[Rfam]
Vault RNA: a 109-nucleotide sequence from Labeo rohita.
RNA sequence: ACGUUGGUUUAGCUCAGUGGUUACUUCCGAUUGUUUCCAAAUCACACUCCCAUGGCCGCCGGGAAACCAGUGGCUGGGGAUCGAACCUCGGGCGCAGUCCAACGUUUUC
Numbered sequence: 001a002c003g004u005u006g007g008u009u010u011a012g013c014u015c016a017g018u019g020g021u022u023a024c025u026u027c028c029g030a031u032u033g034u035u036u037c038c039a040a041a042u043c044a045c046a047c048u049c050c051c052a053u054g055g056c057c058g059c060c061g062g063g064a065a066a067c068c069a070g071u072g073g074c075u076g077g078g079g080a081u082c083g084a085a086c087c088u089c090g091g092g093c094g095c096a097g098u099c100c101a102a103c104g105u106u107u108u109c
Stems, first nucleotide, its partner, number of pairs: 002104006012093004017089001019087002025085003029081001

The match comes from Rfam's covariance-model search (56 bits).